[Rfam]
RNA sequence: AUUCCAAGUCAGUCCAUCAUUUGGCAACCUAACUGUAUUAGAAUUGUUAGCUGCCUUGUGAAGGGCUUCCUUGUAAU
Numbered sequence: 001a002u003u004c005c006a007a008g009u010c011a012g013u014c015c016a017u018c019a020u021u022u023g024g025c026a027a028c029c030u031a032a033c034u035g036u037a038u039u040a041g042a043a044u045u046g047u048u049a050g051c052u053g054c055c056u057u058g059u060g061a062a063g064g065g066c067u068u069c070c071u072u073g074u075a076a077u
Stems, first nucleotide, its partner, number of pairs: 005073004011067005017061004023055002029050005
Background
Rfam assigns this 77-nucleotide sequence from Lucilia cuprina to the family "mir-980 microRNA precursor family". Pairs were carried over by alignment from the consensus structure, which was predicted with RNAalifold. Taxonomically the source falls in Lucilia (Eukaryota, Arthropoda, Panorpida, Diptera). The match comes from Rfam's covariance-model search (63 bits).